[Rfam]
RNA sequence: AUUCCUAAGGCAAUAUGGCGCCCGUCAUAUUGCCGGCAGCAAGCGAAGGUGCCAUUGGUACCCGUGAUAUGGUCGGGCUGACCAUAUCACGUUCUUUUUUU
Dot-bracket structure: ........((((((((((......)))))))))).((.....))...((((((...))))))((((((((((((.....))))))))))))..........
Numbered sequence: 001a002u003u004c005c006u007a008a009g010g011c012a013a014u015a016u017g018g019c020g021c022c023c024g025u026c027a028u029a030u031u032g033c034c035g036g037c038a039g040c041a042a043g044c045g046a047a048g049g050u051g052c053c054a055u056u057g058g059u060a061c062c063c064g065u066g067a068u069a070u071g072g073u074c075g076g077g078c079u080g081a082c083c084a085u086a087u088c089a090c091g092u093u094c095u096u097u098u099u100u101u
Stems, first nucleotide, its partner, number of pairs: 009034010036044002048062006063091012